Nucleotides: 133
Base pairs, nucleotide, nucleotide: 003051004050005049019047020046021045022044025041026040027039028038077121078120079119087109088108089107090106092104
Number, partner (000 for none) and nucleotide at each position: 001000c002000u003051g004050c005049a006000g007000c008000c009000a010000a011000u012000u013000a014000a015000g016000u017000c018000g019047a020046c021045u022044g023000u024000g025041c026040u027039c028038u029000u030000u031000g032000u033000c034000c035000a036000c037000g038028g039027g040026g041025g042000c043000c044022c045021a046020g047019u048000g049005u050004g051003c052000c053000u054000g055000g056000g057000c058000u059000g060000c061000a062000a063000a064000c065000g066000g067000u068000a069000g070000c071000c072000u073000c074000c075000u076000u077121g078120g079119u080000g081000u082000u083000u084000a085000u086000g087109c088108a089107g090106c091000c092104u093000g094000u095000u096000a097000a098000u099000u100000g101000c102000a103000u104092g105000c106090g107089u108088u109087g110000u111000c112000c113000u114000a115000a116000g117000g118000g119079a120078c121077c122000u123000u124000a125000g126000a127000g128000a129000c130000a131000g132000c133000c
Shown here is a 133-nucleotide RNA from Gulo gulo, a member of the family "Small nucleolar RNA SNORA70". Rfam links the family to the GO terms RNA processing and nucleolus. It scores 112 bits against the family's covariance model. The family has 43 seed sequences and 5,173 matches in Rfam 15.1. Rfam's curators write: snoRNA U70 seems to be exclusive to mammals and is a member of the H/ACA class of snoRNA which contain H (ANANNA) and ACA box motifs. H/ACA box snoRNAs are involved in the conversion of uridines to pseudouridines (5-ribosyluracil) a constituent of structural RNAs (transfer, ribosomal, small nuclear, and small nucleolar).